This 143-nucleotide RNA from Helianthus annuus belongs to the Rfam family "small nucleolar RNA snoR135". By type it is an H/ACA-box small nucleolar RNA. The family has 6 seed sequences and 837 matches in Rfam 15.1. On this family, see Chen and Wu, Nucleic Acids Res 2009: "Mining small RNA sequencing data: a new approach to identify small nucleolar RNAs in Arabidopsis". Its family is annotated with RNA processing and nucleolus in the Gene Ontology.

[Rfam]
RNA sequence: GAAGCAAGGAUAGUGUGUAUCGGCUUAGUGUUAAAUUGGUGCACUUUGCUCGAAAGAUUUUCUUGCAAUAAAUAAGUGGACGGUGGGCAGUUGUGUUCCAUUUUUUUCUAUUGGAAUCUUCAACAAUCAUCUUCCCUAUAUCU
Numbered sequence: 001g002a003a004g005c006a007a008g009g010a011u012a013g014u015g016u017g018u019a020u021c022g023g024c025u026u027a028g029u030g031u032u033a034a035a036u037u038g039g040u041g042c043a044c045u046u047u048g049c050u051c052g053a054a055a056g057a058u059u060u061u062c063u064u065g066c067a068a069u070a071a072a073u074a075a076g077u078g079g080a081c082g083g084u085g086g087g088c089a090g091u092u093g094u095g096u097u098c099c100a101u102u103u104u105u106u107u108c109u110a111u112u113g114g115a116a117u118c119u120u121c122a123a124c125a126a127u128c129a130u131c132u133u134c135c136c137u138a139u140a141u142c143u
Stems, first nucleotide, its partner, number of pairs: 004066007015044006076137001078135003082131005090124004